[Rfam]
RNA sequence: GUCGGGAGGGCGACGGAAUAAAAAACCCUUCAGGGGAAUACGUCGCACCGUCUGCAGUAGCACGGCUUUCAACCUCCCGACUCCCCUCG
Numbered sequence: 001g002u003c004g005g006g007a008g009g010g011c012g013a014c015g016g017a018a019u020a021a022a023a024a025a026c027c028c029u030u031c032a033g034g035g036g037a038a039u040a041c042g043u044c045g046c047a048c049c050g051u052c053u054g055c056a057g058u059a060g061c062a063c064g065g066c067u068u069u070c071a072a073c074c075u076c077c078c079g080a081c082u083c084c085c086c087u088c089g
Base pairs, nucleotide, nucleotide: 001081002080003079004078005077006076007075008074009073011045012044013043014042017039026035027034028033048065049064050063051062
RNA: sRNA-Xcc1
Organism: Stenotrophomonas sp. BIIR7